[Rfam]
RNA sequence: GGUCGCGUAACUCAGUUGGUCAGAGUGUCGUACUAAUACUUCUCCUAGUAAGAAGUGAUUCUAGUAAAUGCGAAAGUCGAGAGUUCAAGCCUCUCCGUGACCA
Numbered sequence: 001g002g003u004c005g006c007g008u009a010a011c012u013c014a015g016u017u018g019g020u021c022a023g024a025g026u027g028u029c030g031u032a033c034u035a036a037u038a039c040u041u042c043u044c045c046u047a048g049u050a051a052g053a054a055g056u057g058a059u060u061c062u063a064g065u066a067a068a069u070g071c072g073a074a075a076g077u078c079g080a081g082a083g084u085u086c087a088a089g090c091c092u093c094u095c096c097g098u099g100a101c102c103a
Stems, first nucleotide, its partner, number of pairs: 001102007010026004028073005079095005
Background
The record is a 103-nucleotide RNA sequence from Monosporascus sp. MC13-8B, which matches "tRNA" in Rfam. By type it is a transfer RNA.